RNA sequence: UUCGCCGAGGGGCGCUGCGACCGCCAUGAUCAAGUGCGGCCAGGCUCGGCGCGGCUUCACGUACAACGGCGCCCGGUUGUU
Number, nucleotide and partner (000 for none) at each position: 001u000002u000003c051004g050005c049006c048007g047008a046009g000010g000011g000012g000013c000014g000015c000016u000017g000018c000019g000020a000021c039022c038023g037024c036025c000026a000027u000028g000029a000030u000031c000032a000033a000034g000035u000036g024037c023038g022039g021040c000041c000042a000043g000044g000045c000046u008047c007048g006049g005050c004051g003052c000053g000054g000055c000056u000057u000058c000059a000060c000061g000062u000063a000064c000065a000066a000067c000068g000069g000070c000071g000072c000073c000074c000075g000076g000077u000078u000079g000080u000081u000